[Rfam]
RNA sequence: CAGGGCUGGGGAAGGGCUACUGGGUUGUGGGGCCAGCAGGCCCAGCCUCGUACCAGCCAGCCCCCCCCUGUGCCCCAGAGCAAGGCCCAGGCUGCUCCGUGCCAGAGCUCAGCCUGUGCAGUACCAGGUGUGAGCAUCCAUGCAGCCUUUUGGUGGUCAUGUAUGAUACUGCAUACAGCU
Numbered sequence: 001c002a003g004g005g006c007u008g009g010g011g012a013a014g015g016g017c018u019a020c021u022g023g024g025u026u027g028u029g030g031g032g033c034c035a036g037c038a039g040g041c042c043c044a045g046c047c048u049c050g051u052a053c054c055a056g057c058c059a060g061c062c063c064c065c066c067c068c069u070g071u072g073c074c075c076c077a078g079a080g081c082a083a084g085g086c087c088c089a090g091g092c093u094g095c096u097c098c099g100u101g102c103c104a105g106a107g108c109u110c111a112g113c114c115u116g117u118g119c120a121g122u123a124c125c126a127g128g129u130g131u132g133a134g135c136a137u138c139c140a141u142g143c144a145g146c147c148u149u150u151u152g153g154u155g156g157u158c159a160u161g162u163a164u165g166a167u168a169c170u171g172c173a174u175a176c177a178g179c180u
Stems, first nucleotide, its partner, number of pairs: 003075004008068003015062004020056003024053002027046002030043001032041003087107001090103003115175009125165002131159003135155004142149001
RNA: Small Cajal body specific RNA 16
Organism: Hemiprocne comata